JUMPstart RNA: a 38-nucleotide sequence from Enterobacter sp. 638. Lineage of the source: Bacteria > Pseudomonadati > Gammaproteobacteria > Enterobacterales > Enterobacter. Rfam 15.1 lists 288 matches to the family in 230 species.

[Rfam]
RNA sequence: CAGUGGAUUGGUAACUGAAAGCCAAGGGCGGUAGCGUG
Numbered sequence: 001c002a003g004u005g006g007a008u009u010g011g012u013a014a015c016u017g018a019a020a021g022c023c024a025a026g027g028g029c030g031g032u033a034g035c036g037u038g
Stems, first nucleotide, its partner, number of pairs: 008025005